Small nucleolar RNA SNORD91 family: a 92-nucleotide RNA from Tupaia belangeri. The source organism's lineage runs through Eukaryota, Teleostomi, Sarcopterygii, Tupaiidae and Tupaia belangeri. Rfam links the family to the GO terms RNA processing and nucleolus. A search with the family's covariance model found it, with a score of 102 bits. It is annotated as a C/D-box small nucleolar RNA.
RNA sequence: UUUAGGAGCCAAUGAUGUUUAUUCAAAUGUCUGAACCUGUCUGAAGCAUCCCAGUGAUGCAACCUGUGUGUGGUACUGAGGCUUCUUUGCCA
Numbered sequence: 001u002u003u004a005g006g007a008g009c010c011a012a013u014g015a016u017g018u019u020u021a022u023u024c025a026a027a028u029g030u031c032u033g034a035a036c037c038u039g040u041c042u043g044a045a046g047c048a049u050c051c052c053a054g055u056g057a058u059g060c061a062a063c064c065u066g067u068g069u070g071u072g073g074u075a076c077u078g079a080g081g082c083u084u085c086u087u088u089g090c091c092a
Base pairs, nucleotide, nucleotide: 004086005085006084007083008082009081010080